RNA sequence: GUGGGUUAUGGAGACAUGCUUCCUACAUCAGGUCAAGGCAGGCUGGUAUGCUUCCUCUGUGUAAUGGUCGGGGUUUUGCUCAUCAUCCUGCCUGUGCCCAUAAUUGUCAACAAU
Numbered sequence: 001g002u003g004g005g006u007u008a009u010g011g012a013g014a015c016a017u018g019c020u021u022c023c024u025a026c027a028u029c030a031g032g033u034c035a036a037g038g039c040a041g042g043c044u045g046g047u048a049u050g051c052u053u054c055c056u057c058u059g060u061g062u063a064a065u066g067g068u069c070g071g072g073g074u075u076u077u078g079c080u081c082a083u084c085a086u087c088c089u090g091c092c093u094g095u096g097c098c099c100a101u102a103a104u105u106g107u108c109a110a111c112a113a114u
Base pairs, nucleotide, nucleotide: 001114002113004111008107009106010105011104014101018097019096021094037077038076040074049063050062051061
RNA: Potassium channel RNA editing signal